[Rfam]
Source information: Bacterial small subunit ribosomal RNA: a 585-nucleotide part of an RNA from Pseudoalteromonas phenolica. The source organism's lineage runs through Bacteria, Pseudomonadati, Gammaproteobacteria, Pseudoalteromonadaceae and Pseudoalteromonas. It scores 1569 bits against the family's covariance model.
RNA sequence: UGACGGGGGCCCGCACAAGCGGUGGAGCAUGUGGUUUAAUUCGAUGCAACGCGAAGAACCUUACCUACACUUGACAUACAGAGAACUUACUAGAGAUAGUUUGGUGCCUUCGGGAACUCUGAUACAGGUGCUGCAUGGCUGUCGUCAGCUCGUGUUGUGAGAUGUUGGGUUAAGUCCCGCAACGAGCGCAACCCCUAUCCUUAGUUGCCAGCGAUUCGGUCGGGAACUCUAAGGAGACUGCCGGUGAUAAACCGGAGGAAGGUGGGGACGACGUCAAGUCAUCAUGGCCCUUACGUGUAGGGCUACACACGUGCUACAAUGGCGCAUACAGAGUGCUGCAAGCUCGCGAGAGUUAGCGAAUCACUUAAAAUGCGUCGUAGUCCGGAUUGGAGUCUGCAACUCGACUCCAUGAAGUCGGAAUCGCUAGUAAUCGCGGAUCAGAAUGCCGCGGUGAAUACGUUCCCGGGCCUUGUACACACCGCCCGUCACACCAUGGGAGUGGGUUGCUCCAGAAGUAGGUAGCUUAACCUUAGGGAGGGCGCUUACCACGGAGUGAUUCAUGACUGGGGUGAAGUCGUAACAAGG
Dot-bracket structure: (((((.(((((((.((..((((((.((((((((((....((((........))))........(((((((......(((((((..(..((((....))))..).(.((....)).)))))).))..((.((((..((((((.((...(((((((((....)))..((((......))))..)))))).....((((.(((((((...((..(((.....)))))....)))))))..((.(((((.....))))).)).....))))....)).).)))...))))))))....)))))))...)).)))))))).)...(((((((.....(((..((...(((....)))...))....))).....)))))))......(....(((((((........)))))))....).....))))).....(((((((.........)))))))......))...)))))))))).))..(.(..((...((((.(((..((((((((((((....((((((.((((..((....)).))))))))))...))))))))))))..))).))))....))...)..).
The family has 99 seed sequences and 42,628 matches in Rfam 15.1.
Gene Ontology terms of the family: ribosome and structural constituent of ribosome.